Source information
This 70-nucleotide sequence from Mizugakiibacter sediminis belongs to the Rfam family "int-alpA RNA". Acidobacteria (1 example), Planctomycetes (1 example), Proteobacteria. By type it is a small RNA. Pairs were carried over by alignment from the consensus structure, which is taken from published work.

RNA sequence: GCCACGGCUAGGCCGACGGGCCGAAAGCGCGGACACCUUCACCGCGUUGCCGUGGCGAUCCUUUGAAGGG
Numbered sequence: 001g002c003c004a005c006g007g008c009u010a011g012g013c014c015g016a017c018g019g020g021c022c023g024a025a026a027g028c029g030c031g032g033a034c035a036c037c038u039u040c041a042c043c044g045c046g047u048u049g050c051c052g053u054g055g056c057g058a059u060c061c062u063u064u065g066a067a068g069g070g
Base pairs, nucleotide, nucleotide: 001056002055003054004053005052006051007050008049011022012021013020014019028046029045030044031043032042036070037069038068039067